[Rfam]
Source information:
The record is a 345-nucleotide RNA from Sphingobium vermicomposti, which matches "Alphaproteobacteria transfer-messenger RNA" in Rfam. Bacterial tmRNA, also known as 10Sa RNA or SsrA, is named for its dual tRNA and mRNA-like properties. Its role is to liberate the mRNA from a stalled ribosome. The source organism's lineage runs through Bacteria, Pseudomonadati, Alphaproteobacteria, Sphingomonadales and Sphingobium. The base pairs follow the family's consensus structure, which is taken from published work.

RNA sequence: GAGGUUGAAAAAGCCCGCUGAUUGUCCCAUAUCGCGAGGUGCCGGGUUCGCCCGGCUAUGGUGAUAAAUCGUGUCGUGCAAUAGGCGCAGCGGACCCGGGGGCAGUACCCGGCGGCUCCACCAUUUAUCCCGGAUAUGCGGGGUGAUUGACGGGGCCGAACUAGGAUCGACGUGUGUUGAAAGGCGAUGUCUUCACCCGGCCUGAGUAAGCCGUAAAAAUGUUCAAAACACGUAAGUGCCAACGAUAACGAGGCUCUUGCUCUUGCUGCGUAAUUGAUGGCCUCGCGGCCUGACAUUACUCAAAAAGAACGCGGUUGAACCCACCGGGCAACAGAAGGGAAUUCA
Number, nucleotide and partner (000 for none) at each position: 001g000002a000003g000004g000005u000006u000007g000008a000009a000010a000011a000012a000013g000014c000015c000016c000017g000018c000019u000020g000021a000022u000023u000024g000025u000026c000027c000028c000029a000030u000031a000032u000033c000034g000035c000036g000037a000038g000039g000040u000041g056042c055043c054044g053045g052046g000047u000048u000049c000050g000051c000052c045053c044054g043055g042056c041057u000058a000059u000060g197061g196062u195063g194064a193065u000066a000067a000068a000069u000070c000071g190072u189073g188074u187075c186076g185077u184078g000079c000080a000081a000082u000083a000084g000085g000086c176087g175088c174089a000090g173091c172092g171093g000094a000095c000096c112097c111098g110099g109100g108101g000102g000103c000104a000105g000106u000107a000108c100109c099110c098111g097112g096113c158114g157115g156116c155117u154118c153119c152120a000121c000122c000123a000124u000125u000126u000127a000128u000129c000130c000131c000132g000133g000134a000135u000136a000137u000138g000139c000140g000141g000142g000143g000144u000145g000146a000147u000148u000149g000150a000151c000152g119153g118154g117155g116156c115157c114158g113159a000160a000161c000162u000163a000164g000165g000166a000167u000168c000169g000170a000171c092172g091173u090174g088175u087176g086177u000178u000179g000180a000181a000182a000183g000184g077185c076186g075187a074188u073189g072190u071191c000192u000193u064194c063195a062196c061197c060198c213199g212200g211201c210202c000203u225204g224205a223206g000207u000208a000209a220210g201211c200212c199213g198214u000215a000216a000217a000218a000219a000220u209221g000222u000223u205224c204225a203226a000227a000228a000229c000230a000231c000232g000233u000234a000235a000236g000237u000238g000239c000240c000241a000242a000243c000244g000245a000246u000247a000248a000249c000250g000251a000252g000253g000254c000255u000256c000257u000258u000259g000260c000261u000262c000263u000264u000265g000266c000267u000268g000269c000270g000271u000272a000273a000274u000275u000276g000277a000278u000279g000280g000281c000282c000283u000284c000285g000286c000287g000288g000289c000290c000291u000292g000293a000294c000295a000296u000297u000298a000299c000300u000301c000302a000303a000304a000305a000306a000307g000308a000309a000310c000311g000312c326313g325314g324315u323316u000317g344318a343319a342320c000321c000322c339323a315324c314325c313326g312327g000328g000329c000330a000331a000332c000333a000334g000335a000336a000337g000338g000339g322340a000341a000342u319343u318344c317345a000